[Rfam]
RNA sequence: UUGGGUCAGUGAUGAUAAAAACAUUUGAUUGCCUGACUUUCAGUAUGAGGGCAAUACUAGUCACUACCUCAUCUGAGGCCCUAU
Numbered sequence: 001u002u003g004g005g006u007c008a009g010u011g012a013u014g015a016u017a018a019a020a021a022c023a024u025u026u027g028a029u030u031g032c033c034u035g036a037c038u039u040u041c042a043g044u045a046u047g048a049g050g051g052c053a054a055u056a057c058u059a060g061u062c063a064c065u066a067c068c069u070c071a072u073c074u075g076a077g078g079c080c081c082u083a084u
Stems, first nucleotide, its partner, number of pairs: 002083004007078001
This 84-nucleotide RNA sequence from Hymenochirus boettgeri belongs to the Rfam family "Small nucleolar RNA SNORD11B".
The base pairs follow the family's consensus structure, which was predicted with WAR.
On this family, see Yang et al., Nucleic Acids Res 2006: "snoSeeker: an advanced computational package for screening of guide and orphan snoRNA genes in the human genome".
The match comes from Rfam's covariance-model search (50 bits).
The family is grouped with related families in Rfam's "SNORD11 clan".